[Rfam]
RNA sequence: UGUUUAUCUGUGAUGCUUGAAAAUAAAUGUCUGAACAUAUGAAACAUCUGUGAUUUUUAUUUUCCUUUCUGAGAUAAAUG
Numbered sequence: 001u002g003u004u005u006a007u008c009u010g011u012g013a014u015g016c017u018u019g020a021a022a023a024u025a026a027a028u029g030u031c032u033g034a035a036c037a038u039a040u041g042a043a044a045c046a047u048c049u050g051u052g053a054u055u056u057u058u059a060u061u062u063u064c065c066u067u068u069c070u071g072a073g074a075u076a077a078a079u080g
Base pairs, nucleotide, nucleotide: 002079003078004077005076006075007074008073
RNA: Small nucleolar RNA SNORD72
Organism: Leptobrachium leishanense